[Rfam]
RNA: L31-Firmicutes ribosomal protein leader
RNA sequence: CUCUGGUUCCACAUGAGUUCCAGGGCGGAAAGAG
Numbered sequence: 001c002u003c004u005g006g007u008u009c010c011a012c013a014u015g016a017g018u019u020c021c022a023g024g025g026c027g028g029a030a031a032g033a034g
Stems, first nucleotide, its partner, number of pairs: 001025005008016002